[Rfam]
RNA sequence: ACGACCCAGAGAUGAACCCAUUCCGGAUGUAAAAAUUACAACAAUCCGAGAGCGCAAUACAAAACCGUGUGGAUUAUUCCGUUGCCUUCCUUCUGACGGAGUUU
Numbered sequence: 001a002c003g004a005c006c007c008a009g010a011g012a013u014g015a016a017c018c019c020a021u022u023c024c025g026g027a028u029g030u031a032a033a034a035a036u037u038a039c040a041a042c043a044a045u046c047c048g049a050g051a052g053c054g055c056a057a058u059a060c061a062a063a064a065c066c067g068u069g070u071g072g073a074u075u076a077u078u079c080c081g082u083u084g085c086c087u088u089c090c091u092u093c094u095g096a097c098g099g100a101g102u103u104u
Base pairs, nucleotide, nucleotide: 003103004102005101024081025080026079027078

Overview
This 104-nucleotide RNA sequence from Pleurotus eryngii belongs to the Rfam family "Small nucleolar RNA Z13/snr52". NCBI's taxonomy places the organism under Eukaryota, Opisthokonta, Basidiomycota, Pleurotaceae, Pleurotus. Gene Ontology terms of the family: RNA processing and nucleolus. By type it is a C/D-box small nucleolar RNA.